[Rfam]
RNA sequence: CCUAGGGAGAGUUAUAGCAAACGAAAGUAGCCACGGCGAAAUCGGACUCGCUGAACUAGGAA
Numbered sequence: 001c002c003u004a005g006g007g008a009g010a011g012u013u014a015u016a017g018c019a020a021a022c023g024a025a026a027g028u029a030g031c032c033a034c035g036g037c038g039a040a041a042u043c044g045g046a047c048u049c050g051c052u053g054a055a056c057u058a059g060g061a062a
Stems, first nucleotide, its partner, number of pairs: 001060005009049005022044003030037002
RNA: RAGATH-18 RNA